[Rfam]
Overview: The record is a 75-nucleotide RNA from Alligator mississippiensis, which matches "Mammalian CPEB3 ribozyme" in Rfam. The base pairs follow the family's consensus structure, which is taken from published work.
RNA sequence: AGCUGCCAUAAUGGGCAUAGCAGAAGCACUCACGUCACGGCCCUGUCAGAUUUUAACAGAUCCGCAAAUUGUGCU
Numbered sequence: 001a002g003c004u005g006c007c008a009u010a011a012u013g014g015g016c017a018u019a020g021c022a023g024a025a026g027c028a029c030u031c032a033c034g035u036c037a038c039g040g041c042c043c044u045g046u047c048a049g050a051u052u053u054u055a056a057c058a059g060a061u062c063c064g065c066a067a068a069u070u071g072u073g074c075u
Stems, first nucleotide, its partner, number of pairs: 013043003016039001019075004024070002026038001047064001049062005